[Rfam]
RNA sequence: AGAUGUGAGGGCAAUCUGACUGCAACAUCUGUCACCCCAUUGAUCGCCAGGGUUGAUUCGGCUGAUCUGGCUGGCUAGGCAGGUAUCCCCUUCCUCCCUCACCACUCCAUGUGCUUCCCUAACGAAGCUGGGCGCUCAGUGGAAGAGGACGACCAUUCCAGAUAGGAGUGUACCAUUCUUCGGUCAAGGGUAUAUGAUAGCUGCGCUCCCCUGCUAGAACCUCCAUACAAGCUCUCAAGGUCCAUUUGUAGGAGACCAUUGGGUAGUCAAGCUUCCAAGACUCCAGACACAUCAAAGUGAGGCACUGCACAUGGCAGUUUGCCAUUCAUU
Numbered sequence: 001a002g003a004u005g006u007g008a009g010g011g012c013a014a015u016c017u018g019a020c021u022g023c024a025a026c027a028u029c030u031g032u033c034a035c036c037c038c039a040u041u042g043a044u045c046g047c048c049a050g051g052g053u054u055g056a057u058u059c060g061g062c063u064g065a066u067c068u069g070g071c072u073g074g075c076u077a078g079g080c081a082g083g084u085a086u087c088c089c090c091u092u093c094c095u096c097c098c099u100c101a102c103c104a105c106u107c108c109a110u111g112u113g114c115u116u117c118c119c120u121a122a123c124g125a126a127g128c129u130g131g132g133c134g135c136u137c138a139g140u141g142g143a144a145g146a147g148g149a150c151g152a153c154c155a156u157u158c159c160a161g162a163u164a165g166g167a168g169u170g171u172a173c174c175a176u177u178c179u180u181c182g183g184u185c186a187a188g189g190g191u192a193u194a195u196g197a198u199a200g201c202u203g204c205g206c207u208c209c210c211c212u213g214c215u216a217g218a219a220c221c222u223c224c225a226u227a228c229a230a231g232c233u234c235u236c237a238a239g240g241u242c243c244a245u246u247u248g249u250a251g252g253a254g255a256c257c258a259u260u261g262g263g264u265a266g267u268c269a270a271g272c273u274u275c276c277a278a279g280a281c282u283c284c285a286g287a288c289a290c291a292u293c294a295a296a297g298u299g300a301g302g303c304a305c306u307g308c309a310c311a312u313g314g315c316a317g318u319u320u321g322c323c324a325u326u327c328a329u330u
Stems, first nucleotide, its partner, number of pairs: 002107002005102007014092001018090001025086001027084007035074002037070003042067004046062003117170001118166004124137002127135002140162001147158003200272003206266002209263003213259001221254004227249005295330002299325001301323003304318005
Dot-bracket structure: .((.(((((((..(...(......(.(((((((.(((((..(((((((...........))).)))))))..))...))))))).)...).)...)))))))...)).........(((((..((.((.....))))..(......(((......)))...)))))...).............................(((...((.(((.(.......((((..(((((.............))))).))))....).))).))...)))......................((..(.((((((((.....)))))..))).)...))
RNA: 7SK RNA